The record is a 73-nucleotide sequence from Neomicrococcus aestuarii, which matches "Actino-pnp RNA" in Rfam.
[Rfam]
RNA sequence: CGCGGUCCUCGGUAGUGGCUUUCUGGUUGUUCAUCAUGGAUGAAUGACCCGCGAGCCUCGAUCGAAGACCAGU
Numbered sequence: 001c002g003c004g005g006u007c008c009u010c011g012g013u014a015g016u017g018g019c020u021u022u023c024u025g026g027u028u029g030u031u032c033a034u035c036a037u038g039g040a041u042g043a044a045u046g047a048c049c050c051g052c053g054a055g056c057c058u059c060g061a062u063c064g065a066a067g068a069c070c071a072g073u
Base pairs, nucleotide, nucleotide: 004070005069006068007067009065010064011063012062013061017057018056019055020054021053023051025049026048027047028046029045030044031043032042033041034040035039
Dot-bracket structure: ...((((.(((((...(((((.(.(((((((((((...))))))))))).).)))))...))))).))))...